RNA sequence: AUGGCUUUACUUAAAAUCAUGUUGUGGUUCCCACUCCUUUAUUUUGUGUGGAACUGCUUUGAGUGAAGCUAGAGAGUGUUCCUCUCGCUAUCCUGUGCUUCUCUUUCAUGAGGCAUGUGGACGUUGGGGAACAAGAUUU
Numbered sequence: 001a002u003g004g005c006u007u008u009a010c011u012u013a014a015a016a017u018c019a020u021g022u023u024g025u026g027g028u029u030c031c032c033a034c035u036c037c038u039u040u041a042u043u044u045u046g047u048g049u050g051g052a053a054c055u056g057c058u059u060u061g062a063g064u065g066a067a068g069c070u071a072g073a074g075a076g077u078g079u080u081c082c083u084c085u086c087g088c089u090a091u092c093c094u095g096u097g098c099u100u101c102u103c104u105u106u107c108a109u110g111a112g113g114c115a116u117g118u119g120g121a122c123g124u125u126g127g128g129g130a131a132c133a134a135g136a137u138u139u
Stems, first nucleotide, its partner, number of pairs: 002072001003070003008065006015059002018056002027054005033047002078132007086123002091121003100111002

Small nucleolar RNA snoR136: a 139-nucleotide sequence from Ipomoea nil.
By type it is an H/ACA-box small nucleolar RNA.
Its family is annotated with RNA processing and nucleolus in the Gene Ontology.